A member of the RNA family "MIR7486 microRNA precursor family" from Gossypium lobatum, 86 nucleotides long.
Rfam links the family to the GO terms miRNA-mediated post-transcriptional gene silencing and RISC complex.
A search with the family's covariance model found it, with a score of 72 bits.
[Rfam]
RNA sequence: CAAUCAGCGCGCUUUACUGACGUGGCAGCAAAUCGCAUCCUAGAGGGCGUGAUUUGUUUCCACGUCAGCAAAGCGCGCUGACGUGG
Numbered sequence: 001c002a003a004u005c006a007g008c009g010c011g012c013u014u015u016a017c018u019g020a021c022g023u024g025g026c027a028g029c030a031a032a033u034c035g036c037a038u039c040c041u042a043g044a045g046g047g048c049g050u051g052a053u054u055u056g057u058u059u060c061c062a063c064g065u066c067a068g069c070a071a072a073g074c075g076c077g078c079u080g081a082c083g084u085g086g
Stems, first nucleotide, its partner, number of pairs: 001085002004081012017068004022063004027058010039046002